[Rfam]
RNA sequence: UUGAAGUUCCAUCUACAAAUGGAUAAAACUUUUUUUUAGUUUAGUCUAUACGAGUUUUUGAAAGUAAAGGGGCAAUACUAGUUUCUUGAUAAAUAAAGAAAUUUUGUAUUGCUCCUUU
Numbered sequence: 001u002u003g004a005a006g007u008u009c010c011a012u013c014u015a016c017a018a019a020u021g022g023a024u025a026a027a028a029c030u031u032u033u034u035u036u037u038a039g040u041u042u043a044g045u046c047u048a049u050a051c052g053a054g055u056u057u058u059u060g061a062a063a064g065u066a067a068a069g070g071g072g073c074a075a076u077a078c079u080a081g082u083u084u085c086u087u088g089a090u091a092a093a094u095a096a097a098g099a100a101a102u103u104u105u106g107u108a109u110u111g112c113u114c115c116u117u118u
Base pairs, nucleotide, nucleotide: 008023009022010021011020012019066118067117068116069115070114071113072112073111074110075109076108077107078106080103081102083100084099085098086097087096
Overview
Plastid-psbA-1 3UTR RNA: a 118-nucleotide RNA from Spergula arvensis. Clan: Plastid-psbA 3UTR RNA clan. The literature on the family includes a 2023 paper in Plant Commun by Richter et al., "Retrograde signaling in plants: A critical review focusing on the GUN pathway and beyond". From the family's description: Plastid psbA-1 is a non-coding RNA (ncRNA) present in plastids. It was identified in inverted repeat sequences in the 3 prime untranslate region (3UTR) of photosystem II quinone-binding protein (psbA).